[Rfam]
Shown here is a 154-nucleotide RNA from Paenarthrobacter sp. YJN-5, a member of the family "c-di-AMP riboswitch aptamer (ydaO/yuaA leader)".

RNA sequence: CGGAGUUCCGUUCUGAUUUCGAGGCAGAGACGGGGGACCCAGAGUCUCCGGGCCAGGCAUUGCGCCGGUCCUUGGGGUGAAGCCGCAGCUACACGCGCGGCCGGAUGACCUCAUCCGAACCCGACAGCUAACUCCGCAGGCGCUGAGAGGUAAU
Numbered sequence: 001c002g003g004a005g006u007u008c009c010g011u012u013c014u015g016a017u018u019u020c021g022a023g024g025c026a027g028a029g030a031c032g033g034g035g036g037a038c039c040c041a042g043a044g045u046c047u048c049c050g051g052g053c054c055a056g057g058c059a060u061u062g063c064g065c066c067g068g069u070c071c072u073u074g075g076g077g078u079g080a081a082g083c084c085g086c087a088g089c090u091a092c093a094c095g096c097g098c099g100g101c102c103g104g105a106u107g108a109c110c111u112c113a114u115c116c117g118a119a120c121c122c123g124a125c126a127g128c129u130a131a132c133u134c135c136g137c138a139g140g141c142g143c144u145g146a147g148a149g150g151u152a153a154u
Stems, first nucleotide, its partner, number of pairs: 001140001006029003031136005040074002075122003083100004103116004
Record summary
The match comes from Rfam's covariance-model search (62 bits).